[Rfam]
The family of this 186-nucleotide sequence from Pseudomonas sp. BAY1663 is "Pseudomonas sRNA P27".

RNA sequence: GGGUUUCACUCCUGGAUGUUACCGGUUCAUCCGGUCGAGACCGGACGGGUUUUGGUGUCUGAUUCGGUACGAAUCGGGAGCACCUCUGCGUAGGCUUGAGGUUUAAGGCUCGCGCCGCCUACGGUCUUGGAUAGCCCCCGCCAGGCAGGGACCCCAAUCUUGCAGACCGCCCCGCGAACGGGGCGG
Numbered sequence: 001g002g003g004u005u006u007c008a009c010u011c012c013u014g015g016a017u018g019u020u021a022c023c024g025g026u027u028c029a030u031c032c033g034g035u036c037g038a039g040a041c042c043g044g045a046c047g048g049g050u051u052u053u054g055g056u057g058u059c060u061g062a063u064u065c066g067g068u069a070c071g072a073a074u075c076g077g078g079a080g081c082a083c084c085u086c087u088g089c090g091u092a093g094g095c096u097u098g099a100g101g102u103u104u105a106a107g108g109c110u111c112g113c114g115c116c117g118c119c120u121a122c123g124g125u126c127u128u129g130g131a132u133a134g135c136c137c138c139c140g141c142c143a144g145g146c147a148g149g150g151a152c153c154c155c156a157a158u159c160u161u162g163c164a165g166a167c168c169g170c171c172c173c174g175c176g177a178a179c180g181g182g183g184c185g186g
Base pairs, nucleotide, nucleotide: 002154003153005151006150007149011145012144013143014142023049028047030045031044032043033042034041035040054084055083056082057081058080059077060076061075062074063073064072065071088141089140090139093136094135095134096133101132102131103130104129105128106127107126108125109124110123168185169184170183171182172181173180
The base pairs follow the family's consensus structure, which was predicted with WAR. It is annotated as a small RNA.